[Rfam]
The record is a 203-nucleotide RNA sequence from Oryza sativa, which matches "MIR812 microRNA precursor family" in Rfam. The family's consensus secondary structure was predicted with RNAalifold. Its family is annotated with miRNA-mediated post-transcriptional gene silencing and RISC complex in the Gene Ontology. It scores 173 bits against the family's covariance model.
RNA sequence: UAUAAGUGUGCCCAUGAGUUUCCGUGCUCAAUUUUGACUGUCCGUCUUAUUUAAAAAAAAUUUAGAUUAGUAUUUUUAUCAUUAUUAGAUGACGAACCAUGAAUAGUAAUUUAUGCGUGACUUAUGUUUUUAUUUUUUUCAAAAAAAUUUUAAAUAAGAUAGACGAUCAAAGUUGGGCACAGAAAAUCAUGGCUGCAUUUAAA
Numbered sequence: 001u002a003u004a005a006g007u008g009u010g011c012c013c014a015u016g017a018g019u020u021u022c023c024g025u026g027c028u029c030a031a032u033u034u035u036g037a038c039u040g041u042c043c044g045u046c047u048u049a050u051u052u053a054a055a056a057a058a059a060a061u062u063u064a065g066a067u068u069a070g071u072a073u074u075u076u077u078a079u080c081a082u083u084a085u086u087a088g089a090u091g092a093c094g095a096a097c098c099a100u101g102a103a104u105a106g107u108a109a110u111u112u113a114u115g116c117g118u119g120a121c122u123u124a125u126g127u128u129u130u131u132a133u134u135u136u137u138u139u140c141a142a143a144a145a146a147a148u149u150u151u152a153a154a155u156a157a158g159a160u161a162g163a164c165g166a167u168c169a170a171a172g173u174u175g176g177g178c179a180c181a182g183a184a185a186a187u188c189a190u191g192g193c194u195g196c197a198u199u200u201a202a203a
Stems, first nucleotide, its partner, number of pairs: 027177011039165004044160007